[Rfam]
The record is a 101-nucleotide RNA sequence from Rossellomorea marisflavi, which matches "Purine riboswitch aptamer" in Rfam. Riboswitches are metabolite binding domains within certain messenger RNAs that serve as precision sensors for their corresponding targets. Pairs were carried over by alignment from the consensus structure, which is taken from published work. It scores 75 bits against the family's covariance model.

RNA sequence: AUAAUAAAAUACAUGAACCCUUGUAUAAGUUCAAGAAUAUGGCUUGAACGUUUCUACCAGCUACCCUAAAUGGCUUGUCUACAAGAAGAUGAAUGUUUUCA
Numbered sequence: 001a002u003a004a005u006a007a008a009a010u011a012c013a014u015g016a017a018c019c020c021u022u023g024u025a026u027a028a029g030u031u032c033a034a035g036a037a038u039a040u041g042g043c044u045u046g047a048a049c050g051u052u053u054c055u056a057c058c059a060g061c062u063a064c065c066c067u068a069a070a071u072g073g074c075u076u077g078u079c080u081a082c083a084a085g086a087a088g089a090u091g092a093a094u095g096u097u098u099u100c101a
Base pairs, nucleotide, nucleotide: 020085021084022083023082024081025080029049030048031047032046033045034044035043058077059076060074061073062072063071